[Rfam]
RNA sequence: GGCAGAUGAUGUCUUUCUCUCACGAUGGUCUGCGGAUGCCCCACGGGCAGUGCCGACGAUGCCAAUGGCUCAGCUGAUGCCAGGAG
Numbered sequence: 001g002g003c004a005g006a007u008g009a010u011g012u013c014u015u016u017c018u019c020u021c022a023c024g025a026u027g028g029u030c031u032g033c034g035g036a037u038g039c040c041c042c043a044c045g046g047g048c049a050g051u052g053c054c055g056a057c058g059a060u061g062c063c064a065a066u067g068g069c070u071c072a073g074c075u076g077a078u079g080c081c082a083g084g085a086g
Base pairs, nucleotide, nucleotide: 001081002080003079004078
RNA: Small nucleolar RNA SNORD35